[Rfam]
Nucleotides: 107
Stems, first nucleotide, its partner, number of pairs: 008103008017092005022086002024083002
Number, partner (000 for none) and nucleotide at each position: 001000a002000g003000c004000a005000u006000a007000c008103g009102g010101g011100c012099a013098a014097g015096u016000c017092c018091c019090u020089u021088a022086c023085g024083g025082u026000c027000a028000g029000c030000u031000c032000c033000c034000u035000u036000g037000g038000a039000a040000u041000c042000c043000c044000c045000c046000a047000g048000g049000g050000u051000g052000g053000g054000a055000a056000c057000g058000c059000a060000g061000c062000a063000a064000g065000g066000g067000u068000a069000c070000a071000u072000g073000g074000u075000u076000g077000u078000a079000g080000c081000g082025a083024c084000g085023c086022g087000a088021u089020a090019a091018g092017g093000a094000c095000a096015g097014c098013u099012u100011g101010c102009c103008c104000a105000c106000c107000c